RNA sequence: CGACGCUGUUCCUUGGCACUGGGAGAAUUCACAGGAGUUGUAAUUCAUACCCGUGAAUUUCCCGAUGCCUUAGCUCAGUGUGG
Numbered sequence: 001c002g003a004c005g006c007u008g009u010u011c012c013u014u015g016g017c018a019c020u021g022g023g024a025g026a027a028u029u030c031a032c033a034g035g036a037g038u039u040g041u042a043a044u045u046c047a048u049a050c051c052c053g054u055g056a057a058u059u060u061c062c063c064g065a066u067g068c069c070u071u072a073g074c075u076c077a078g079u080g081u082g083g
Base pairs, nucleotide, nucleotide: 003081004080005079006078007077008076015069016068017067018066020064021063022062023060025059026058029056030055031054032053034051
mir-263 microRNA precursor family: an 83-nucleotide sequence from Bombyx mori.
The base pairs follow the family's consensus structure, which was predicted with RNAalifold.
The source organism's lineage runs through Eukaryota, Protostomia, Insecta, Dicondylia and Bombyx.
Its family is annotated with RISC complex and miRNA-mediated post-transcriptional gene silencing in the Gene Ontology.
It is one of the family's seed sequences.
A reference for the family is Li et al. (2009), "Direct sequencing and expression analysis of a large number of miRNAs in Aedes aegypti and a multi-species survey of novel mosquito miRNAs", BMC Genomics.